The record is a 136-nucleotide sequence from Cricetulus griseus, which matches "Small Cajal body specific RNA 11" in Rfam.
The organism belongs to Cricetulus, within Eukaryota.
On this family, see Darzacq et al., EMBO J 2002: "Cajal body-specific small nuclear RNAs: a novel class of 2'-O-methylation and pseudouridylation guide RNAs".
[Rfam]
RNA sequence: UUGUCCUGUGCCUUUUUCUGCUUCCCUGUGCUCAGUCUCAACAGGGUGGUCUGGCAGGACACACAGCAAUUUCCCUCUCCGUUUAAGAGGGCUAUCCUAAGAAUAGGGCUAGCUCUUAAAGGCAUGAGAGAACAAU
Numbered sequence: 001u002u003g004u005c006c007u008g009u010g011c012c013u014u015u016u017u018c019u020g021c022u023u024c025c026c027u028g029u030g031c032u033c034a035g036u037c038u039c040a041a042c043a044g045g046g047u048g049g050u051c052u053g054g055c056a057g058g059a060c061a062c063a064c065a066g067c068a069a070u071u072u073c074c075c076u077c078u079c080c081g082u083u084u085a086a087g088a089g090g091g092c093u094a095u096c097c098u099a100a101g102a103a104u105a106g107g108g109c110u111a112g113c114u115c116u117u118a119a120a121g122g123c124a125u126g127a128g129a130g131a132a133c134a135a136u
Stems, first nucleotide, its partner, number of pairs: 002061007011054002020050003024046006075130005081123004087117007095108005